[Rfam]
RNA sequence: GGCCUGUGAUGUCAAAAAUUUGUCCGUACCAUCUGAGACUUUUUUCGUCAUCUCUGAUGCAUAAAUUUCAUUUCUAGUUUUCUGAGGCCU
Numbered sequence: 001g002g003c004c005u006g007u008g009a010u011g012u013c014a015a016a017a018a019u020u021u022g023u024c025c026g027u028a029c030c031a032u033c034u035g036a037g038a039c040u041u042u043u044u045u046c047g048u049c050a051u052c053u054c055u056g057a058u059g060c061a062u063a064a065a066u067u068u069c070a071u072u073u074c075u076a077g078u079u080u081u082c083u084g085a086g087g088c089c090u
Stems, first nucleotide, its partner, number of pairs: 001089004

Annotation:
Shown here is a 90-nucleotide sequence from Morus notabilis, a member of the family "small nucleolar RNA snoR117". The literature on the family includes a 2009 paper in Nucleic Acids Res by Chen and Wu, "Mining small RNA sequencing data: a new approach to identify small nucleolar RNAs in Arabidopsis". NCBI's taxonomy places the organism under Eukaryota, Embryophyta, Magnoliopsida, eudicotyledons, Morus. Gene Ontology terms of the family: RNA processing and nucleolus. The match comes from Rfam's covariance-model search (69 bits).